Rfam assigns this 129-nucleotide sequence from Streptomyces sp. ICBB 8177 to the family "Streptomyces RNA 4115". Rfam's curators write: Identified by deep sequencing of transcriptome at the end of exponential growth phase. Sequencing size consistent with notrthern blot size. Streptomyces specific. Lineage of the source: Bacteria > Bacillati > Actinomycetota > Streptomycetaceae > Streptomyces.
RNA sequence: GCGUGGGUCGGCCCGCCGUCGCGACUGCGGCUUCGGACACGUCGAUGGCUGGCCAGGGGACACCGCCGCCUCAUUCCCCGCGGGUGGCGGAACCGGUCCGGGAGGCGUCGGCACGCCUCCCGGACCGAC
Numbered sequence: 001g002c003g004u005g006g007g008u009c010g011g012c013c014c015g016c017c018g019u020c021g022c023g024a025c026u027g028c029g030g031c032u033u034c035g036g037a038c039a040c041g042u043c044g045a046u047g048g049c050u051g052g053c054c055a056g057g058g059g060a061c062a063c064c065g066c067c068g069c070c071u072c073a074u075u076c077c078c079c080g081c082g083g084g085u086g087g088c089g090g091a092a093c094c095g096g097u098c099c100g101g102g103a104g105g106c107g108u109c110g111g112c113a114c115g116c117c118u119c120c121c122g123g124a125c126c127g128a129c
Stems, first nucleotide, its partner, number of pairs: 002127001006094002008091001010054004015049007056061001063090009095126013